Annotation:
Rhizobiales sRNA Atu_C8: a 117-nucleotide sequence from Neoaquamicrobium microcysteis. It is annotated as a small RNA. A reference for the family is Wilms et al. (2012), "Deep sequencing uncovers numerous small RNAs on all four replicons of the plant pathogen Agrobacterium tumefaciens", RNA Biol.

[Rfam]
RNA sequence: GAACAUCUCGACGAUCAUUCUCGUAGGAAGGCGCGUGGGCAAGGCGGUGUAACCGCCGGGCGACAGCUUCCCAUGCGCAAACACAGGCUCCUCCGGGGGCCUUUUUUAUUGCCCGCA
Numbered sequence: 001g002a003a004c005a006u007c008u009c010g011a012c013g014a015u016c017a018u019u020c021u022c023g024u025a026g027g028a029a030g031g032c033g034c035g036u037g038g039g040c041a042a043g044g045c046g047g048u049g050u051a052a053c054c055g056c057c058g059g060g061c062g063a064c065a066g067c068u069u070c071c072c073a074u075g076c077g078c079a080a081a082c083a084c085a086g087g088c089u090c091c092u093c094c095g096g097g098g099g100c101c102u103u104u105u106u107u108a109u110u111g112c113c114c115g116c117a
Base pairs, nucleotide, nucleotide: 009023026113027112029110031078032077033076034075035074036073037072038071039070043057044056045055046054047053060067061066083103085102086101087100088099089098090097091096